[Rfam]
RNA: Group II catalytic intron D1-D4-6
Organism: Desulfonema magnum
RNA sequence: AAAGUCCCGCACGGCUAAAGUGUGGCCGACAGGCCGUAAGUGAAGUCCGAGGGCAAACCCGGCAACGGGCGUCCGAAGCCGGACGGAACGAGACUGCAGGCUGUGUGACUGAGCCCCGAAAUGGGUAUGAUCGUGGUCAGAAGGACAAGCUUUUGAGAAAUCGGAAGCGAAAGCCGACGUUGUUCAGCGAACGGAAGGCAGCAAUCCUGAAUGCGAUAUGGCAAGUGUUCAGGAUACCGCCGGGAUCUGAGAACA
Numbered sequence: 001a002a003a004g005u006c007c008c009g010c011a012c013g014g015c016u017a018a019a020g021u022g023u024g025g026c027c028g029a030c031a032g033g034c035c036g037u038a039a040g041u042g043a044a045g046u047c048c049g050a051g052g053g054c055a056a057a058c059c060c061g062g063c064a065a066c067g068g069g070c071g072u073c074c075g076a077a078g079c080c081g082g083a084c085g086g087a088a089c090g091a092g093a094c095u096g097c098a099g100g101c102u103g104u105g106u107g108a109c110u111g112a113g114c115c116c117c118g119a120a121a122u123g124g125g126u127a128u129g130a131u132c133g134u135g136g137u138c139a140g141a142a143g144g145a146c147a148a149g150c151u152u153u154u155g156a157g158a159a160a161u162c163g164g165a166a167g168c169g170a171a172a173g174c175c176g177a178c179g180u181u182g183u184u185c186a187g188c189g190a191a192c193g194g195a196a197g198g199c200a201g202c203a204a205u206c207c208u209g210a211a212u213g214c215g216a217u218a219u220g221g222c223a224a225g226u227g228u229u230c231a232g233g234a235u236a237c238c239g240c241c242g243g244g245a246u247c248u249g250a251g252a253a254c255a
Stems, first nucleotide, its partner, number of pairs: 012036005020030002023224001025222002040089002045084003049079001051074004058069004110249001111247001113246001115244004133240005173199003178193004204235011